[Rfam]
RNA: Small nucleolar RNA SNORA65
Organism: Cathartes aura
RNA sequence: CCUGCCACCGUACCUCUCUCGUAAUGCAGCGACUAGUACAGUCCAGAGGUGAGCUGACAGAAAAUGCCAACUUAGGAAGCAGGGCUGUUCUUCUGGUGGGUAACUUUGUGCCCAGGUCUGGGAACAGGC
Numbered sequence: 001c002c003u004g005c006c007a008c009c010g011u012a013c014c015u016c017u018c019u020c021g022u023a024a025u026g027c028a029g030c031g032a033c034u035a036g037u038a039c040a041g042u043c044c045a046g047a048g049g050u051g052a053g054c055u056g057a058c059a060g061a062a063a064a065u066g067c068c069a070a071c072u073u074a075g076g077a078a079g080c081a082g083g084g085c086u087g088u089u090c091u092u093c094u095g096g097u098g099g100g101u102a103a104c105u106u107u108g109u110g111c112c113c114a115g116g117u118c119u120g121g122g123a124a125c126a127g128g129c
Stems, first nucleotide, its partner, number of pairs: 005049002008046001010044001018036002021033001022031001065122001067121003070117004075112002080108005088100003